[Rfam]
RNA sequence: UAAAAAUCAAUAUAGUUCACCUGUAUAAUCGCGGGGAUAUGGCCCGCGAGUAUCUACCAGACUGCCGUAACGAGGUCUGACUACAGGUUUAGGCUUUACAGGU
Numbered sequence: 001u002a003a004a005a006a007u008c009a010a011u012a013u014a015g016u017u018c019a020c021c022u023g024u025a026u027a028a029u030c031g032c033g034g035g036g037a038u039a040u041g042g043c044c045c046g047c048g049a050g051u052a053u054c055u056a057c058c059a060g061a062c063u064g065c066c067g068u069a070a071c072g073a074g075g076u077c078u079g080a081c082u083a084c085a086g087g088u089u090u091a092g093g094c095u096u097u098a099c100a101g102g103u
Stems, first nucleotide, its partner, number of pairs: 019088007029049007058079006
RNA: Purine riboswitch aptamer
Organism: Peptoclostridium acidaminophilum